Source information: Eukaryotic small subunit ribosomal RNA: a 167-nucleotide part of an RNA from Blastocystis hominis. It is one of the family's seed sequences. Its Rfam clan is "SSU clan". Taxonomically the source falls in Blastocystis (Eukaryota, Bigyra, Opalozoa, Blastocystidae). The family's consensus secondary structure is taken from published work.
RNA sequence: CCGCCCGUCGCACCUACCGAUUGGAUGAUCCGGUGAACACUUUGGAUUUUUAAUUAUUUAUCGGCUUGCUGGUAGAUAGUUGAAGAGAAGUCGUGUAAAUCUUAUCAUCUAGAGGAAGGUGAAGUCGUAACAAGGUUUCCGUAGGUGAACCUGCGGAAGGAUCAUUA
Numbered sequence: 001c002c003g004c005c006c007g008u009c010g011c012a013c014c015u016a017c018c019g020a021u022u023g024g025a026u027g028a029u030c031c032g033g034u035g036a037a038c039a040c041u042u043u044g045g046a047u048u049u050u051u052a053a054u055u056a057u058u059u060a061u062c063g064g065c066u067u068g069c070u071g072g073u074a075g076a077u078a079g080u081u082g083a084a085g086a087g088a089a090g091u092c093g094u095g096u097a098a099a100u101c102u103u104a105u106c107a108u109c110u111a112g113a114g115g116a117a118g119g120u121g122a123a124g125u126c127g128u129a130a131c132a133a134g135g136u137u138u139c140c141g142u143a144g145g146u147g148a149a150c151c152u153g154c155g156g157a158a159g160g161a162u163c164a165u166u167a
Stems, first nucleotide, its partner, number of pairs: 001134001003131001006127002009124001011121005017115002021111001023110007032101003037096004043090001047086011059074004136159010